[Rfam]
RNA: terC RNA
Organism: Stakelama pacifica
RNA sequence: CUCGCGGACCGGGCCCCUCUGACGGCGGCUGUUCAGCCGCCGUGAUGUCGGACCGCAUCG
Numbered sequence: 001c002u003c004g005c006g007g008a009c010c011g012g013g014c015c016c017c018u019c020u021g022a023c024g025g026c027g028g029c030u031g032u033u034c035a036g037c038c039g040c041c042g043u044g045a046u047g048u049c050g051g052a053c054c055g056c057a058u059c060g
Stems, first nucleotide, its partner, number of pairs: 006054002009051004022043008